[Rfam]
RNA sequence: CUGGGAGAGACCAGAGAUCCUGCUGUCUCCUCAGCAUCAUUCCAGGCACAGAACGCCAGAAAAUCGAAUGGUGCUGUUGAAUC
Numbered sequence: 001c002u003g004g005g006a007g008a009g010a011c012c013a014g015a016g017a018u019c020c021u022g023c024u025g026u027c028u029c030c031u032c033a034g035c036a037u038c039a040u041u042c043c044a045g046g047c048a049c050a051g052a053a054c055g056c057c058a059g060a061a062a063a064u065c066g067a068a069u070g071g072u073g074c075u076g077u078u079g080a081a082u083c
Base pairs, nucleotide, nucleotide: 001014002013003012004011032076033075034074035073036072037071038070039069040068041067042066045057046056047055
Flavivirus 3' UTR cis-acting replication element (CRE): an 83-nucleotide RNA sequence from Orthoflavivirus denguei. It is one of the family's seed sequences. Lineage of the source: Viruses > Amarillovirales > Orthoflavivirus > Euflavivirus > Dengue virus. The base pairs follow the family's consensus structure, which is taken from published work. About the family: This family represents the Flavivirus 3'-SL cis-acting replication element (CRE). The family is thought to play a crucial role in replication and is thought to be needed for the formation of a 'replication complex'. Although evidence has been presented for an existence of a pseudoknot structure in this RNA, it does not appear to be well conserved across flaviviruses. The family's RNA type in Rfam is cis-regulatory element.